[Rfam]
RNA sequence: GCCGGGGUGGCGGAAUUGGCAGACGCACGGGACUUAAAAUCCCGCGGUUAGUGAUAACCGUAUCGGUUCGAGCCCGAUCCUCGGCA
Numbered sequence: 001g002c003c004g005g006g007g008u009g010g011c012g013g014a015a016u017u018g019g020c021a022g023a024c025g026c027a028c029g030g031g032a033c034u035u036a037a038a039a040u041c042c043c044g045c046g047g048u049u050a051g052u053g054a055u056a057a058c059c060g061u062a063u064c065g066g067u068u069c070g071a072g073c074c075c076g077a078u079c080c081u082c083g084g085c086a
Stems, first nucleotide, its partner, number of pairs: 001085007010026003028044005062078005
RNA: tRNA